[Rfam]
RNA sequence: UGCGAUGAGUCGAAGUAAUCAGACGAAUUUAUUCGUUCCGCUGCGGCGGCUAGUGAUUUUUUUUCGAGAGGGGCACAAAUGCUGACGGAUUUCCAGCGUGCCUGUAGGUGUUCAUUGUGGAAUGA
Dot-bracket structure: ................(((((((((((....))))))((((....))))....))))).............(((((....((((.........))))))))).........(((((....)))))